The family of this 99-nucleotide RNA from Lachnoclostridium sp. An196 is "ZMP/ZTP riboswitch aptamer (pfl RNA motif)". Taxonomically the source falls in Lachnoclostridium (Bacteria, Bacillati, Bacillota, Lachnospiraceae). The literature on the family includes a 2015 paper in Nat Struct Mol Biol by Jones and Ferre-D'Amare, "Recognition of the bacterial alarmone ZMP through long-distance association of two RNA subdomains". Pairs were carried over by alignment from the consensus structure, which is taken from published work. Rfam links the family to the GO terms one-carbon metabolic process and regulation of purine nucleotide biosynthetic process.
RNA sequence: AAAGAACUGCACGACUGGCGGAAAGCAGGGAUAUCCUGUGGUAGGGAAACCUACAGGGAGUGCAGAUCAUCAAGAAAGCCGACCGCCUGGGCGCAUGCA
Number, nucleotide and partner (000 for none) at each position: 001a000002a000003a000004g068005a067006a000007c065008u064009g063010c062011a061012c060013g000014a000015c057016u056017g087018g086019c085020g084021g083022a000023a000024a000025g000026c000027a000028g000029g000030g000031a000032u000033a000034u000035c000036c000037u000038g000039u000040g000041g000042u053043a052044g051045g050046g000047a000048a000049a000050c045051c044052u043053a042054c000055a000056g016057g015058g000059a000060g012061u011062g010063c009064a008065g007066a000067u005068c004069a000070u000071c000072a000073a000074g000075a000076a000077a000078g092079c091080c090081g000082a000083c021084c020085g019086c018087c017088u000089g000090g080091g079092c078093g000094c000095a000096u000097g000098c000099a000